This 85-nucleotide RNA sequence from Methanoregula formicica belongs to the Rfam family "L4-Archaeoglobi ribosomal protein leades". A reference for the family is Eckert and Weinberg (2020), "Discovery of 20 novel ribosomal leader candidates in bacteria and archaea", BMC Microbiol. By type it is a cis-regulatory leader.
[Rfam]
RNA sequence: CUGAUCAGGCGCAUGGGCGAACGUUCGUGCAACGAGCCCCUUCUUCGUGCGGACUAAUGUCCGCGUGAAGAUGCGCCAUUGUCAG
Numbered sequence: 001c002u003g004a005u006c007a008g009g010c011g012c013a014u015g016g017g018c019g020a021a022c023g024u025u026c027g028u029g030c031a032a033c034g035a036g037c038c039c040c041u042u043c044u045u046c047g048u049g050c051g052g053a054c055u056a057a058u059g060u061c062c063g064c065g066u067g068a069a070g071a072u073g074c075g076c077c078a079u080u081g082u083c084a085g
Stems, first nucleotide, its partner, number of pairs: 001085005008077005015039003022034004042071005049064006